[Rfam]
RNA sequence: GGUCAAUGAUGAUUGGUAAAAGGUCUGAUUGCACUAAAUGUCACCGCUCCUUCCUUGCCCUCUACUCCCAGCAGCCCGUCCUUUUUUUCCUAGCACAUUGAAGUCGUGUGUGGGAGAGUGGGGCAGCUGAUAAUUUAGGAUUCUGUCAGUAUGUGUUCCGAGAGUGAAUGGUUCACAGCUGACUGCUGUCCAACAGAACCCUUUAUACAGGAGUCUUGAUGAGUGGCAGGGUGGAUGUGACAGUGCAUGAUCUCAAGUUUUCAAUCUGAGACC
Numbered sequence: 001g002g003u004c005a006a007u008g009a010u011g012a013u014u015g016g017u018a019a020a021a022g023g024u025c026u027g028a029u030u031g032c033a034c035u036a037a038a039u040g041u042c043a044c045c046g047c048u049c050c051u052u053c054c055u056u057g058c059c060c061u062c063u064a065c066u067c068c069c070a071g072c073a074g075c076c077c078g079u080c081c082u083u084u085u086u087u088u089c090c091u092a093g094c095a096c097a098u099u100g101a102a103g104u105c106g107u108g109u110g111u112g113g114g115a116g117a118g119u120g121g122g123g124c125a126g127c128u129g130a131u132a133a134u135u136u137a138g139g140a141u142u143c144u145g146u147c148a149g150u151a152u153g154u155g156u157u158c159c160g161a162g163a164g165u166g167a168a169u170g171g172u173u174c175a176c177a178g179c180u181g182a183c184u185g186c187u188g189u190c191c192a193a194c195a196g197a198a199c200c201c202u203u204u205a206u207a208c209a210g211g212a213g214u215c216u217u218g219a220u221g222a223g224u225g226g227c228a229g230g231g232u233g234g235a236u237g238u239g240a241c242a243g244u245g246c247a248u249g250a251u252c253u254c255a256a257g258u259u260u261u262c263a264a265u266c267u268g269a270g271a272c273c
Base pairs, nucleotide, nucleotide: 001273002272003271004270038253040251041250042249047229048228050226051225053223065213066212067211068210069129070128071127072126074124075123089114090113094112095111096110097109098108139190140189141188144185152177153176154175155174158171159170
Overview:
The record is a 273-nucleotide RNA sequence from Neotoma lepida, which matches "Small Cajal body specific RNA 6" in Rfam. Pairs were carried over by alignment from the consensus structure, which is taken from published work. From the family's description: U88 is small Cajal body specific RNA (scaRNA). scaRNAs are a novel class of small nuclear RNAs which localise to the Cajal bodies. U88 is found associated with both fibrillarin and Gar1p and co-localises with coilin in Cajal bodies. Rfam classes the family as a small Cajal body RNA. The organism belongs to Neotoma, within Eukaryota.